Notes
Small nucleolar RNA SNORD72: an 81-nucleotide sequence from Mauremys mutica. Lineage of the source: Eukaryota > Metazoa > Teleostomi > Geoemydidae > Mauremys. Gene Ontology terms of the family: RNA processing and nucleolus. Rfam describes the family as follows. snoRNA HBII-240 belongs to the CD family of snoRNAs. It is the human orthologue of the mouse MBII-240 and is predicted to guide 2'O-ribose methylation of the large 28S rRNA at residue U4590.

RNA sequence: AGCUUGUCAAUGAUGUUUCUCUUUAAAAAUGUCUGAACAUAUGAGGUCCAUAGUGAUUUUGACUUGUAACUGAGAUAAGCU
Dot-bracket structure: .(((((((.................................................................))))))).